[Rfam]
This 171-nucleotide RNA sequence from Schizophyllum amplum belongs to the Rfam family "small nucleolar RNA snR35". The family is grouped with related families in Rfam's "SNORA13 clan". The family's RNA type in Rfam is H/ACA-box small nucleolar RNA. Gene Ontology terms of the family: RNA processing and nucleolus. The family's consensus secondary structure was predicted with RNAalifold. The match comes from Rfam's covariance-model search (39 bits).

RNA sequence: UUCGUGCGGCGUCACGGCCAUACUUUUCCCCUGUUGCUCAUAUUCAGCGCACAUUCUACGCGGAUGUUCGAGUGUCAGGCCGUGUCCAGAGCGUCAUUGGAGCGUCUCAGCACCCAUUAUCUCCUCUCGAAGUUUUUUACGAAGGGGAUGGGUCGGUGGUUCCAGACAUCC
Numbered sequence: 001u002u003c004g005u006g007c008g009g010c011g012u013c014a015c016g017g018c019c020a021u022a023c024u025u026u027u028c029c030c031c032u033g034u035u036g037c038u039c040a041u042a043u044u045c046a047g048c049g050c051a052c053a054u055u056c057u058a059c060g061c062g063g064a065u066g067u068u069c070g071a072g073u074g075u076c077a078g079g080c081c082g083u084g085u086c087c088a089g090a091g092c093g094u095c096a097u098u099g100g101a102g103c104g105u106c107u108c109a110g111c112a113c114c115c116a117u118u119a120u121c122u123c124c125u126c127u128c129g130a131a132g133u134u135u136u137u138u139a140c141g142a143a144g145g146g147g148a149u150g151g152g153u154c155g156g157u158g159g160u161u162c163c164a165g166a167c168a169u170c171c
Stems, first nucleotide, its partner, number of pairs: 020085004036073004045063001047061002097165005103159001117151009128141002